[Rfam]
This 83-nucleotide RNA from Homo sapiens belongs to the Rfam family "mir-629 microRNA precursor family". The source organism's lineage runs through Eukaryota, Craniata, Teleostomi, Theria and Homo. Rfam 15.1 lists 20 matches to the family in 19 species.
RNA sequence: GAGGGGAGGGGCUGGGCUUACGUUGGGAGAACCUCCUGGUUCACCGUAAAAGUUCUCCCAACGUAAACCCAGCCCCUCCCCUG
Numbered sequence: 001g002a003g004g005g006g007a008g009g010g011g012c013u014g015g016g017c018u019u020a021c022g023u024u025g026g027g028a029g030a031a032c033c034u035c036c037u038g039g040u041u042c043a044c045c046g047u048a049a050a051a052g053u054u055c056u057c058c059c060a061a062c063g064u065a066a067a068c069c070c071a072g073c074c075c076c077u078c079c080c081c082u083g
Stems, first nucleotide, its partner, number of pairs: 002082015018066015034050001038045002
Record summary
It scores 72 bits against the family's covariance model.